[Rfam]
RNA: Small nucleolar RNA SNORD100
RNA sequence: UGUGUCUGUGAUGAUGAUCUGGCUCCCUCUACUGACUAAUAUGAGGACAUUGCCACUGUUACCCAAUUCCAUGUCUGAGAUGCA
Numbered sequence: 001u002g003u004g005u006c007u008g009u010g011a012u013g014a015u016g017a018u019c020u021g022g023c024u025c026c027c028u029c030u031a032c033u034g035a036c037u038a039a040u041a042u043g044a045g046g047a048c049a050u051u052g053c054c055a056c057u058g059u060u061a062c063c064c065a066a067u068u069c070c071a072u073g074u075c076u077g078a079g080a081u082g083c084a
Stems, first nucleotide, its partner, number of pairs: 001084006